[Rfam]
RNA sequence: UGUGCGGGCCGGGCCCCUCUGGCGGCUGGCUUCCUGCGGGGAGCUGGUCGUGAUGUCGGACCGCAUCG
Dot-bracket structure: .....((.((((.........(((((((((((((....)))))))))))))....)))).))......

A member of the RNA family "terC RNA", 68 nucleotides long. Rfam classes the family as a cis-regulatory element.